Shown here is a 143-nucleotide RNA sequence from Flavivirga eckloniae, a member of the family "Flavo-1 RNA".
NCBI's taxonomy places the organism under Bacteria, Pseudomonadati, Bacteroidota, Flavobacteriia, Flavivirga.
The match comes from Rfam's covariance-model search (45 bits).
RNA sequence: UUUGCGUUAGGGAUAGUAACGGCAUCCUUUUUAUGCUUAGACCAAAAUGUUCUCUUCUUUGUUUAUACUUAUUAUUUACACUAGCUCUUAAAACUCUUAAAUCUGGUGAGCAUAAAAAGAUAUAGUGGAUAGUCCGACUGCGC
Numbered sequence: 001u002u003u004g005c006g007u008u009a010g011g012g013a014u015a016g017u018a019a020c021g022g023c024a025u026c027c028u029u030u031u032u033a034u035g036c037u038u039a040g041a042c043c044a045a046a047a048u049g050u051u052c053u054c055u056u057c058u059u060u061g062u063u064u065a066u067a068c069u070u071a072u073u074a075u076u077u078a079c080a081c082u083a084g085c086u087c088u089u090a091a092a093a094c095u096c097u098u099a100a101a102u103c104u105g106g107u108g109a110g111c112a113u114a115a116a117a118a119g120a121u122a123u124a125g126u127g128g129a130u131a132g133u134c135c136g137a138c139u140g141c142g143c
Stems, first nucleotide, its partner, number of pairs: 010135003014131002019126002024121003030116010